[Rfam]
Nucleotides: 129
Base pairs, nucleotide, nucleotide: 003127005125006124007123008122009121010120017029018028019027031109032108033099034098035049036048037047038046044097045096053074054073079095080094081093082092083091101112102111103110
Number, partner (000 for none) and nucleotide at each position: 001000u002000a003127c004000g005125u006124u007123c008122u009121u010120c011000g012000g013000g014000g015000c016000g017029g018028g019027g020000u021000g022000u023000g024000a025000u026000u027019c028018c029017c030000c031109a032108c033099c034098g035049g036048c037047g038046g039000u040000g041000a042000c043000a044097g045096u046038c047037c048036g049035c050000g051000a052000c053074c054073u055000g056000c057000u058000u059000u060000g061000g062000u063000a064000u065000a066000u067000c068000a069000g070000g071000g072000c073054a074053g075000c076000u077000g078000a079095c080094c081093c082092g083091g084000u085000g086000a087000g088000a089000u090000u091083c092082c093081g094080g095079g096045a097044c098034c099033g100000a101112c102111a103110g104000u105000a106000u107000a108032g109031u110103c111102u112101g113000g114000a115000u116000g117000a118000g119000a120010g121009a122008a123007g124006a125005a126000g127003g128000u129000g